[Rfam]
RNA: U11 spliceosomal RNA
Organism: Carassius auratus
RNA sequence: AAAAAGAGCAUCUGCUUUGAUUGGCACAGUUGUGAAAGAGACUGCCUGACACAGUUACAGAAUCAUUAUUAAGAGAUUUCGGAUGCACGUAUUUUUAAGACUCAAGACUGCUAGUAAUUGAUGAUUGUGGCGUCCUA
Numbered sequence: 001a002a003a004a005a006g007a008g009c010a011u012c013u014g015c016u017u018u019g020a021u022u023g024g025c026a027c028a029g030u031u032g033u034g035a036a037a038g039a040g041a042c043u044g045c046c047u048g049a050c051a052c053a054g055u056u057a058c059a060g061a062a063u064c065a066u067u068a069u070u071a072a073g074a075g076a077u078u079u080c081g082g083a084u085g086c087a088c089g090u091a092u093u094u095u096u097a098a099g100a101c102u103c104a105a106g107a108c109u110g111c112u113a114g115u116a117a118u119u120g121a122u123g124a125u126u127g128u129g130g131c132g133u134c135c136u137a
Base pairs, nucleotide, nucleotide: 008086009085010084011083012082013026014025015024016023028056029055030054031053032052033051034050037047038046058081060079061078062077063076064075106134107133108132110131111130112129113128116126117125118124119123